[Rfam]
RNA sequence: ACAAGCGUUAAUCAACGCCCGUCAUGUGCAACCCCCGGUACCUGAUACGGCCGGGGUUC
Numbered sequence: 001a002c003a004a005g006c007g008u009u010a011a012u013c014a015a016c017g018c019c020c021g022u023c024a025u026g027u028g029c030a031a032c033c034c035c036c037g038g039u040a041c042c043u044g045a046u047a048c049g050g051c052c053g054g055g056g057u058u059c
Stems, first nucleotide, its partner, number of pairs: 001022002005018005030058002033056007
Rfam assigns this 59-nucleotide sequence from beta proteobacterium AAP65 to the family "L17-Actino-Proteobacteria ribosomal protein leader". The base pairs follow the family's consensus structure, which is taken from published work. A reference for the family is Eckert and Weinberg (2020), "Discovery of 20 novel ribosomal leader candidates in bacteria and archaea", BMC Microbiol. It is annotated as a cis-regulatory leader. The match comes from Rfam's covariance-model search (40 bits).